[Rfam]
RNA sequence: GGAAGUUGUUGCAAAAUACGCGCCCUGAAAAUCAGAAACUGGCCGACGCUUUUUUAAAGCGUCGGUUAUUUUUUUGG
Numbered sequence: 001g002g003a004a005g006u007u008g009u010u011g012c013a014a015a016a017u018a019c020g021c022g023c024c025c026u027g028a029a030a031a032u033c034a035g036a037a038a039c040u041g042g043c044c045g046a047c048g049c050u051u052u053u054u055u056a057a058a059g060c061g062u063c064g065g066u067u068a069u070u071u072u073u074u075u076g077g
Stems, first nucleotide, its partner, number of pairs: 011021002040068009
This 77-nucleotide sequence from Klebsiella indica belongs to the Rfam family "Enterobacterial sRNA STnc240". The family's consensus secondary structure was predicted with WAR.